[Rfam]
RNA: 6S / SsrS RNA
Organism: Erysipelothrix inopinata
RNA sequence: UAGUACCUAGAAGGUCUAAAUAUUUUUCCGACACUUUGAUAUAAGGGAAUCCGGACGUACCACUAACAGUGUGAAUACUGGUAUUUAUAUCAGAAUCCCAGAAAUUAGUGAACAGGAUACCCACCUGUAAGAAACAGGGACAAUAUAUCACCCUUCUGGGUCUUUU
Dot-bracket structure: .((.((((((((........((((.((((...............(((.((((.(......((((((......((...(((((......)))))..)).......))))))..).)))).)))..............)))).))))........)))))))).))..
Numbered sequence: 001u002a003g004u005a006c007c008u009a010g011a012a013g014g015u016c017u018a019a020a021u022a023u024u025u026u027u028c029c030g031a032c033a034c035u036u037u038g039a040u041a042u043a044a045g046g047g048a049a050u051c052c053g054g055a056c057g058u059a060c061c062a063c064u065a066a067c068a069g070u071g072u073g074a075a076u077a078c079u080g081g082u083a084u085u086u087a088u089a090u091c092a093g094a095a096u097c098c099c100a101g102a103a104a105u106u107a108g109u110g111a112a113c114a115g116g117a118u119a120c121c122c123a124c125c126u127g128u129a130a131g132a133a134a135c136a137g138g139g140a141c142a143a144u145a146u147a148u149c150a151c152c153c154u155u156c157u158g159g160g161u162c163u164u165u166u
Stems, first nucleotide, its partner, number of pairs: 002164002005161008021145004026140004045122003049118004054113001061110006073097002078093005